[Rfam]
Annotation
The record is an 89-nucleotide RNA from Malus domestica, which matches "Small nucleolar RNA snoR109" in Rfam. Pairs were carried over by alignment from the consensus structure, which was predicted with WAR. A reference for the family is Marker et al. (2002), "Experimental RNomics: identification of 140 candidates for small non-messenger RNAs in the plant Arabidopsis thaliana", Curr Biol.

RNA sequence: CGGCUGUAGCUAAAUUGAAACAACUGAGAGGUUUACUGGCCGGUCGUCGUUUUCUGUCGACAGAUCUGCUUACCGAGCUUCUCACAUUU
Dot-bracket structure: .........................((((((((....(((.((((((((........)))).)))).))).....))))))))......